Shown here is a 50-nucleotide RNA sequence from Saltera sarcocolla, a member of the family "Plastid-ccsA-ndhD-1 3UTR RNA". On this family, see Richter et al., Plant Commun 2023: "Retrograde signaling in plants: A critical review focusing on the GUN pathway and beyond". The base pairs follow the family's consensus structure, which was predicted with LocARNA. It is one of the family's seed sequences. Rfam classes the family as a cis-regulatory element.

[Rfam]
RNA sequence: GUGAGAACCUUUUGAAUCAAGUAGUAUAGUGAUUCAAAUGGUUCUCAACA
Dot-bracket structure: .((((((((.(((((((((..........))))))))).))))))))...
Numbered sequence: 001g002u003g004a005g006a007a008c009c010u011u012u013u014g015a016a017u018c019a020a021g022u023a024g025u026a027u028a029g030u031g032a033u034u035c036a037a038a039u040g041g042u043u044c045u046c047a048a049c050a
Stems, first nucleotide, its partner, number of pairs: 002047008011038009